RNA sequence: CCGCCCGUCAUCGGGGAGUAGUCGCCUCGCACCUUCGCGAGGGCCUCGCGUCAACACACUUGGCCGCCCACGGCGUCCAUGGCGCAGGCAGCUGGUUCAGCCUGGCAAGACCUUUGACCGCGCAGCCUUCUUCGGAGCCAGGAGGGGUGCGUGGUCAUGCGCUUGUCCUGGCCCGGA
Dot-bracket structure: .........................(((..........))).((((.((((((.......(((.(((.....))).)))))))))))))......(...............................................................................).
The record is a 177-nucleotide sequence from Ramlibacter rhizophilus, which matches "Manganese Mn2+ riboswitch aptamer (yybP-ykoY)" in Rfam.
On this family, see Argaman et al., Curr Biol 2001: "Novel small RNA-encoding genes in the intergenic regions of Escherichia coli".
A search with the family's covariance model found it, with a score of 70 bits.
The family has 29 seed sequences and 1,126 matches in Rfam 15.1.
Rfam's curators write: This RNA was originally discovered in E. coli during a large scale screen and was named SraF. The family was later found to exist upstream of related families of protein genes in many bacteria, including the the yybP and ykoK genes in B. subtilis.